A member of the RNA family "ZMP/ZTP riboswitch aptamer (pfl RNA motif)" from a Pseudonocardiaceae bacterium, 84 nucleotides long.
A search with the family's covariance model found it, with a score of 47 bits.
[Rfam]
RNA sequence: UAGCCAGCGACUGGCGCUACGAGGUGGAAUCGACCACCGGGGAGCGAAGAGGAAAGGCUGGCACCGCGCGCCUGGGUGCUCCGG
Numbered sequence: 001u002a003g004c005c006a007g008c009g010a011c012u013g014g015c016g017c018u019a020c021g022a023g024g025u026g027g028a029a030u031c032g033a034c035c036a037c038c039g040g041g042g043a044g045c046g047a048a049g050a051g052g053a054a055a056g057g058c059u060g061g062c063a064c065c066g067c068g069c070g071c072c073u074g075g076g077u078g079c080u081c082c083g084g
Base pairs, nucleotide, nucleotide: 001051007045008044011041012040013072014071015070016069017068024037025036026035027034061079062078063077064076065075